[Rfam]
RNA sequence: GGCCAGUGAUGUAAGGAUAAUAUUUGCUACUCUUGAUGGGUUUAUCUCAUAUGAGGAUUAUUUUCCACCAAGAUCUCUGAGGCU
Number, nucleotide and partner (000 for none) at each position: 001g084002g083003c082004c081005a000006g000007u000008g000009a000010u000011g000012u000013a000014a000015g000016g000017a000018u000019a000020a000021u000022a000023u000024u000025u000026g000027c000028u000029a000030c000031u000032c000033u000034u000035g000036a000037u000038g000039g000040g000041u000042u000043u000044a000045u000046c000047u000048c000049a000050u000051a000052u000053g000054a000055g000056g000057a000058u000059u000060a000061u000062u000063u000064u000065c000066c000067a000068c000069c000070a000071a000072g000073a000074u000075c000076u000077c000078u000079g000080a000081g004082g003083c002084u001
Shown here is an 84-nucleotide sequence from Papaver nudicaule, a member of the family "Small nucleolar RNA SNORD24". By type it is a C/D-box small nucleolar RNA. Rfam 15.1 lists 2,843 matches to the family in 1,188 species. NCBI's taxonomy places the organism under Eukaryota, Streptophytina, Magnoliopsida, Papaveroideae, Papaver. For this family Rfam cites "Site-specific ribose methylation of preribosomal RNA: a novel function for small nucleolar RNAs" (Kiss-Laszlo et al., Cell, 1996). The family's consensus secondary structure was predicted with PFOLD.